[Rfam]
RNA sequence: GGAUAUCACUUUUUGUUAUCCUCGGCCAAUAAAACAAUGGCACAUAGGAUAACAUUUUCAUGUGUUAUUGUUUUAUUGGUCGGAAAUAGCAAAAUAGUGUUAUCU
Numbered sequence: 001g002g003a004u005a006u007c008a009c010u011u012u013u014u015g016u017u018a019u020c021c022u023c024g025g026c027c028a029a030u031a032a033a034a035c036a037a038u039g040g041c042a043c044a045u046a047g048g049a050u051a052a053c054a055u056u057u058u059c060a061u062g063u064g065u066u067a068u069u070g071u072u073u074u075a076u077u078g079g080u081c082g083g084a085a086a087u088a089g090c091a092a093a094a095u096a097g098u099g100u101u102a103u104c105u
Base pairs, nucleotide, nucleotide: 002104003103004102005101011094012093013092014091015090016089017088018087019086022083023082024081025080026079027078028077029076030075031074032073033072034071035070036069037068038067039066040065041064042063043062044061045060047058048057049056
Background: This 105-nucleotide RNA from Prunus yedoensis belongs to the Rfam family "MIR6274 microRNA precursor family". Taxonomically the source falls in Prunus yedoensis (Eukaryota, Streptophyta, Streptophytina, Gunneridae). Rfam links the family to the GO terms RISC complex and miRNA-mediated post-transcriptional gene silencing. A search with the family's covariance model found it, with a score of 81 bits.